Rfam assigns this 85-nucleotide RNA from Desulfosporosinus fructosivorans to the family "c-di-GMP-I-GGC riboswitch aptamer". Lineage of the source: Bacteria > Bacillati > Clostridia > Eubacteriales > Desulfosporosinus.

[Rfam]
RNA sequence: AGCGAUAAUGGCAAACUUAGUGAAAACUAAGGACGCAAAGCUAUGGGUCUUCCAGGUAAAGCUGAUGAUUGCCAAGCCACCGAAC
Numbered sequence: 001a002g003c004g005a006u007a008a009u010g011g012c013a014a015a016c017u018u019a020g021u022g023a024a025a026a027c028u029a030a031g032g033a034c035g036c037a038a039a040g041c042u043a044u045g046g047g048u049c050u051u052c053c054a055g056g057u058a059a060a061g062c063u064g065a066u067g068a069u070u071g072c073c074a075a076g077c078c079a080c081c082g083a084a085c
Stems, first nucleotide, its partner, number of pairs: 003082002011036002016031006034071001040077003044074003047069003